[Rfam]
RNA sequence: CGAUGGGAUAGAGGCUGCGGCUUGUAUGAUUAGGACGGACGAGAUUCAAUGAAAUUGAUGACUCUUUCUGAAAGGACAAGCUGCCGAAGCCGGGAUGAUUCAUUGAUUAUUCCAGCUGGUGAUGUUUUCGAAGAGAGGCAUCACUGUCACGUUCUAUAAACGUGGAGAGCUAUCUUCGGA
Number, nucleotide and partner (000 for none) at each position: 001c000002g000003a000004u000005g000006g175007g174008a173009u172010a171011g170012a000013g000014g000015c000016u000017g084018c083019g082020g081021c080022u079023u078024g077025u076026a000027u000028g000029a000030u000031u000032a000033g069034g068035a067036c000037g065038g064039a063040c000041g000042a000043g000044a000045u000046u000047c000048a000049a000050u000051g000052a000053a000054a000055u000056u000057g000058a000059u000060g000061a000062c000063u039064c038065u037066u000067u035068c034069u033070g000071a000072a000073a000074g000075g000076a025077c024078a023079a022080g021081c020082u019083g018084c017085c000086g000087a000088a117089g116090c115091c000092g113093g112094g111095a110096u109097g108098a107099u106100u000101c000102a000103u000104u000105g000106a099107u098108u097109a096110u095111u094112c093113c092114a000115g090116c089117u088118g145119g144120u143121g142122a141123u140124g139125u138126u137127u136128u135129c000130g000131a000132a000133g000134a000135g128136a127137g126138g125139c124140a123141u122142c121143a120144c119145u118146g000147u165148c164149a163150c162151g161152u160153u159154c000155u000156a000157u000158a000159a153160a152161c151162g150163u149164g148165g147166a000167g000168a000169g000170c011171u010172a009173u008174c007175u006176u000177c000178g000179g000180a000
The family of this 180-nucleotide RNA sequence from Mesobacillus foraminis is "Lysine riboswitch aptamer". It scores 120 bits against the family's covariance model. NCBI's taxonomy places the organism under Bacteria, Bacillati, Bacilli, Bacillaceae, Mesobacillus. Rfam's curators write: Riboswitches are metabolite binding domains within certain messenger RNAs that serve as precision sensors for their corresponding targets.